[Rfam]
RNA sequence: GAAGUGAGCUAGACGAUCGCUGCUGUGGAGGUCUCCGUGACUAAAACAGGGGAGGAAAGUCCGGGCUUCAAAGGGUAAGGUGCCAGAUAACGUCUGGGCGGCGUGAGCCGACGGCAAGUGCAGCAGAGAGUAGACCGCCUGAUUUUGCUUUUGGCAGAGUCAGGUAAGGGUGAAAGGGUGCGGUAAGAGCGCACCGCAUGGCUGGUAACAGUACAUGGCAAGGUAAACCCCACCUGAAGCAAGACCAAAUAGGAAUCCAUUAGGUGUGACCCGCAUCGGAUUCGGGUAGGUUGCUUGAGCAUGUGAGUAAUUGCAUGCCUAGAGGAAUGAUCGUUCUUGACAGAACCCGGCUUAUCGGCUCACUUCACUA
Numbered sequence: 001g002a003a004g005u006g007a008g009c010u011a012g013a014c015g016a017u018c019g020c021u022g023c024u025g026u027g028g029a030g031g032u033c034u035c036c037g038u039g040a041c042u043a044a045a046a047c048a049g050g051g052g053a054g055g056a057a058a059g060u061c062c063g064g065g066c067u068u069c070a071a072a073g074g075g076u077a078a079g080g081u082g083c084c085a086g087a088u089a090a091c092g093u094c095u096g097g098g099c100g101g102c103g104u105g106a107g108c109c110g111a112c113g114g115c116a117a118g119u120g121c122a123g124c125a126g127a128g129a130g131u132a133g134a135c136c137g138c139c140u141g142a143u144u145u146u147g148c149u150u151u152u153g154g155c156a157g158a159g160u161c162a163g164g165u166a167a168g169g170g171u172g173a174a175a176g177g178g179u180g181c182g183g184u185a186a187g188a189g190c191g192c193a194c195c196g197c198a199u200g201g202c203u204g205g206u207a208a209c210a211g212u213a214c215a216u217g218g219c220a221a222g223g224u225a226a227a228c229c230c231c232a233c234c235u236g237a238a239g240c241a242a243g244a245c246c247a248a249a250u251a252g253g254a255a256u257c258c259a260u261u262a263g264g265u266g267u268g269a270c271c272c273g274c275a276u277c278g279g280a281u282u283c284g285g286g287u288a289g290g291u292u293g294c295u296u297g298a299g300c301a302u303g304u305g306a307g308u309a310a311u312u313g314c315a316u317g318c319c320u321a322g323a324g325g326a327a328u329g330a331u332c333g334u335u336c337u338u339g340a341c342a343g344a345a346c347c348c349g350g351c352u353u354a355u356c357g358g359c360u361c362a363c364u365u366c367a368c369u370a
Stems, first nucleotide, its partner, number of pairs: 001366010011355001012335007020052002023049004057353003061350005066239004073272004078235005083097005098112001099110004113230002118228002120224002135169002137165012177195006196219001197217004202211003243292004253283006263277005299318008
About this RNA:
This 370-nucleotide sequence from Acinetobacter populi belongs to the Rfam family "Bacterial RNase P class A". Gene Ontology terms of the family: dimeric ribonuclease P complex, ribonuclease P activity and tRNA processing. The organism belongs to Acinetobacter, within Bacteria. The family's RNA type in Rfam is ribozyme. It scores 333 bits against the family's covariance model.